[Rfam]
Shown here is a 475-nucleotide part of an RNA from Actinopolymorpha singaporensis, a member of the family "Bacterial large subunit ribosomal RNA". The family's consensus secondary structure is taken from published work. It scores 2784 bits against the family's covariance model.
RNA sequence: CUCCCCGAAAUGCAUUUAGGUGCAGCGUCGCGUGUUUCCUACCGGAGGUAGAGCACUGGAUGGUCUAGGGGGCCGACAAGCUUACCGAAAUCAGCCAAACUCCGAAUGCCGGUAGGUGAGAGCGCGGCAGUGAGACUGCGGGGGAUAAGCUUCGUAGUCGAGAGGGAAACAGCCCAGAUCACCAGCUAAGGCCCCUAAGCGUUCGCUAAGUGGAAAAGGAUGUGGAGUCGCAGAGACAACCAGGAGGUUGGCUUAGAAGCAGCCACCCUUGAAAGAGUGCGUAAUAGCUCACUGGUCAAGUGAUUCUGCGCCGACAAUGUAGCGGGGCUCAAGCGAACCGCCGAAGCUGUGGCAUUCACGUAUUGUUCGGCUCUGCCCUUCGGGGUGGGUCCAGACGUGUGGAUGGGUAGGGGAGCGUCGUGUGGCGUGUGAAGCGGCGGGGUGACCCAGCCGUGGAUGCUACACGAGUGAGAAU
Numbered sequence: 001c002u003c004c005c006c007g008a009a010a011u012g013c014a015u016u017u018a019g020g021u022g023c024a025g026c027g028u029c030g031c032g033u034g035u036u037u038c039c040u041a042c043c044g045g046a047g048g049u050a051g052a053g054c055a056c057u058g059g060a061u062g063g064u065c066u067a068g069g070g071g072g073c074c075g076a077c078a079a080g081c082u083u084a085c086c087g088a089a090a091u092c093a094g095c096c097a098a099a100c101u102c103c104g105a106a107u108g109c110c111g112g113u114a115g116g117u118g119a120g121a122g123c124g125c126g127g128c129a130g131u132g133a134g135a136c137u138g139c140g141g142g143g144g145a146u147a148a149g150c151u152u153c154g155u156a157g158u159c160g161a162g163a164g165g166g167a168a169a170c171a172g173c174c175c176a177g178a179u180c181a182c183c184a185g186c187u188a189a190g191g192c193c194c195c196u197a198a199g200c201g202u203u204c205g206c207u208a209a210g211u212g213g214a215a216a217a218g219g220a221u222g223u224g225g226a227g228u229c230g231c232a233g234a235g236a237c238a239a240c241c242a243g244g245a246g247g248u249u250g251g252c253u254u255a256g257a258a259g260c261a262g263c264c265a266c267c268c269u270u271g272a273a274a275g276a277g278u279g280c281g282u283a284a285u286a287g288c289u290c291a292c293u294g295g296u297c298a299a300g301u302g303a304u305u306c307u308g309c310g311c312c313g314a315c316a317a318u319g320u321a322g323c324g325g326g327g328c329u330c331a332a333g334c335g336a337a338c339c340g341c342c343g344a345a346g347c348u349g350u351g352g353c354a355u356u357c358a359c360g361u362a363u364u365g366u367u368c369g370g371c372u373c374u375g376c377c378c379u380u381c382g383g384g385g386u387g388g389g390u391c392c393a394g395a396c397g398u399g400u401g402g403a404u405g406g407g408u409a410g411g412g413g414a415g416c417g418u419c420g421u422g423u424g425g426c427g428u429g430u431g432a433a434g435c436g437g438c439g440g441g442g443u444g445a446c447c448c449a450g451c452c453g454u455g456g457a458u459g460c461u462a463c464a465c466g467a468g469u470g471a472g473a474a475u
Stems, first nucleotide, its partner, number of pairs: 001415006011024005026130001027128007036121001038116008051103001052101002057097003061093004068086002070083004134159010164175003179352004184348003190342003199339001201338006218312002222309010239296005245269003250264003270274001275290001279288002353405008416470001418467010434454005439448003